[Rfam]
RNA sequence: GUGUUCAAUGAUGAUUCUGAUGCGUAUGCCUGAUAUCCUUUUGGAUAAUGAAGGCAUCUUCAGUCACUACCUCUUCUGAGACAC
Numbered sequence: 001g002u003g004u005u006c007a008a009u010g011a012u013g014a015u016u017c018u019g020a021u022g023c024g025u026a027u028g029c030c031u032g033a034u035a036u037c038c039u040u041u042u043g044g045a046u047a048a049u050g051a052a053g054g055c056a057u058c059u060u061c062a063g064u065c066a067c068u069a070c071c072u073c074u075u076c077u078g079a080g081a082c083a084c
Base pairs, nucleotide, nucleotide: 001084002083003082004081
RNA: Small nucleolar RNA SNORD11